Shown here is a 315-nucleotide sequence from Aramus guarauna, a member of the family "7SK RNA". The base pairs follow the family's consensus structure, which is taken from published work. The match comes from Rfam's covariance-model search (273 bits). From the family's description: 7SK was discovered as an abundant small nuclear RNA in the mid-70s but a possible function has only recently been suggested.

[Rfam]
RNA sequence: GGAUGUGAGGGCGAUCUGGCUGUGACAUCUGUCACUCCAUUGAUCGCCAAGGUUGAUUUGGCUGAUCUGGCUGGCUAGGUGAGUGUCUCCUUCUUCCCUCACCACUCCAUGUUCAUCCCUCCUGAAGUUGCAAAGAGGAUGACCUUCCUCAACAGAAACAUAUUCAUCUGUCAAGGGUAUACGGUAGCUGUGCUCCCCUGCUAGAAUCUCCAAACAAGCUCAAGGUCCAUUUGUAGGAAAAUGUAAGGUAGUCAAGCUUCCAAGACUGCAGACACAUCCAAGUGAGGCACUGCAUGGGGCAGUCUGCCAUUGUUU
Numbered sequence: 001g002g003a004u005g006u007g008a009g010g011g012c013g014a015u016c017u018g019g020c021u022g023u024g025a026c027a028u029c030u031g032u033c034a035c036u037c038c039a040u041u042g043a044u045c046g047c048c049a050a051g052g053u054u055g056a057u058u059u060g061g062c063u064g065a066u067c068u069g070g071c072u073g074g075c076u077a078g079g080u081g082a083g084u085g086u087c088u089c090c091u092u093c094u095u096c097c098c099u100c101a102c103c104a105c106u107c108c109a110u111g112u113u114c115a116u117c118c119c120u121c122c123u124g125a126a127g128u129u130g131c132a133a134a135g136a137g138g139a140u141g142a143c144c145u146u147c148c149u150c151a152a153c154a155g156a157a158a159c160a161u162a163u164u165c166a167u168c169u170g171u172c173a174a175g176g177g178u179a180u181a182c183g184g185u186a187g188c189u190g191u192g193c194u195c196c197c198c199u200g201c202u203a204g205a206a207u208c209u210c211c212a213a214a215c216a217a218g219c220u221c222a223a224g225g226u227c228c229a230u231u232u233g234u235a236g237g238a239a240a241a242u243g244u245a246a247g248g249u250a251g252u253c254a255a256g257c258u259u260c261c262a263a264g265a266c267u268g269c270a271g272a273c274a275c276a277u278c279c280a281a282g283u284g285a286g287g288c289a290c291u292g293c294a295u296g297g298g299g300c301a302g303u304c305u306g307c308c309a310u311u312g313u314u315u
Stems, first nucleotide, its partner, number of pairs: 001108003005102007013093002018090002024087005030081004035074002037070003042067004046062003116158001120156002122127001128152003137148003187257003193251002196248002199245003209238003214234005280315003284310001286308003289303005